dfrA-dnaX RNA: a 76-nucleotide RNA.
RNA sequence: AUGCCUAAUGAUAAAGCUAUUAAUAUUUCACCAUAGUUACAUUAGUUUAGUUAUCAAAUGGGAACUAUGGUACGGU
Dot-bracket structure: .............................((((((((..........................)))))))).....
Source information:
The family's RNA type in Rfam is small RNA.